[Rfam]
RNA: Bacterial large subunit ribosomal RNA, nucleotides 9 to 603
RNA sequence: AGGUAAGGGCACAUGGUGGAUGCCUUGGUAUCAAGAGCCGAUGAAGGACGUGGUAAGACUGCGAUAAGCCUCGGUCAGCUGCCUAACAAGCUAAGCCGGGGAUUUCCGAAUGGGGCAACCCGCUCAGGCAAAACCUGAGUACUCCCAGCUCAACACAUAGGCUGGGUAGAGGUAAGUGGGGGAAGGUGAAACAUCUCAGUACCCCGAGGAAAAGAAAUUAUUCUCCUAGUAGCGGCGAGCGAACGGGGAUGAGCCUAAACCUUGUAAUCUUAGUGGUUCUGUAGCCUAUGUUUACAAGGGGUUGUAAGAAGAAUUUGGUUUGUGCAGAGCAAACCGAGAAGUUACAAACCUAACCCUAUUAGAAGGUCCCUGGAACGGGCAACCACAGAGGGUGAGAGUCCCGUAAAUUAAAGGGUAUAGGCUUCUGAUUCUUUCUUAAGUACCACGAGACUCGUGGAAUCUCGUGGGAAUCCGCCGUGACCACAUGGCAAGGCUAAAUACUCUUGAUGACCGAUAGUGAACUAGUACCGUGAGGGAAAGGUGAAAAGCACCCCGAGAGGGGAGUGAAAUAGAACUGAAACCGUGUGCCUACAAG
Numbered sequence: 001a002g003g004u005a006a007g008g009g010c011a012c013a014u015g016g017u018g019g020a021u022g023c024c025u026u027g028g029u030a031u032c033a034a035g036a037g038c039c040g041a042u043g044a045a046g047g048a049c050g051u052g053g054u055a056a057g058a059c060u061g062c063g064a065u066a067a068g069c070c071u072c073g074g075u076c077a078g079c080u081g082c083c084u085a086a087c088a089a090g091c092u093a094a095g096c097c098g099g100g101g102a103u104u105u106c107c108g109a110a111u112g113g114g115g116c117a118a119c120c121c122g123c124u125c126a127g128g129c130a131a132a133a134c135c136u137g138a139g140u141a142c143u144c145c146c147a148g149c150u151c152a153a154c155a156c157a158u159a160g161g162c163u164g165g166g167u168a169g170a171g172g173u174a175a176g177u178g179g180g181g182g183a184a185g186g187u188g189a190a191a192c193a194u195c196u197c198a199g200u201a202c203c204c205c206g207a208g209g210a211a212a213a214g215a216a217a218u219u220a221u222u223c224u225c226c227u228a229g230u231a232g233c234g235g236c237g238a239g240c241g242a243a244c245g246g247g248g249a250u251g252a253g254c255c256u257a258a259a260c261c262u263u264g265u266a267a268u269c270u271u272a273g274u275g276g277u278u279c280u281g282u283a284g285c286c287u288a289u290g291u292u293u294a295c296a297a298g299g300g301g302u303u304g305u306a307a308g309a310a311g312a313a314u315u316u317g318g319u320u321u322g323u324g325c326a327g328a329g330c331a332a333a334c335c336g337a338g339a340a341g342u343u344a345c346a347a348a349c350c351u352a353a354c355c356c357u358a359u360u361a362g363a364a365g366g367u368c369c370c371u372g373g374a375a376c377g378g379g380c381a382a383c384c385a386c387a388g389a390g391g392g393u394g395a396g397a398g399u400c401c402c403g404u405a406a407a408u409u410a411a412a413g414g415g416u417a418u419a420g421g422c423u424u425c426u427g428a429u430u431c432u433u434u435c436u437u438a439a440g441u442a443c444c445a446c447g448a449g450a451c452u453c454g455u456g457g458a459a460u461c462u463c464g465u466g467g468g469a470a471u472c473c474g475c476c477g478u479g480a481c482c483a484c485a486u487g488g489c490a491a492g493g494c495u496a497a498a499u500a501c502u503c504u505u506g507a508u509g510a511c512c513g514a515u516a517g518u519g520a521a522c523u524a525g526u527a528c529c530g531u532g533a534g535g536g537a538a539a540g541g542u543g544a545a546a547a548g549c550a551c552c553c554c555g556a557g558a559g560g561g562g563a564g565u566g567a568a569a570u571a572g573a574a575c576u577g578a579a580a581c582c583g584u585g586u587g588c589c590u591a592c593a594a595g
Stems, first nucleotide, its partner, number of pairs: 007590010022575001023541002027512002029509009038172002046107003049063003069101007078091003112121003122140007142169002144166007177206005188195002221498001222249005232240002252495004260299007306437003311431005346424002349421004353416005360407001366380003370377001384388001390402003443467008474489005528535002551562004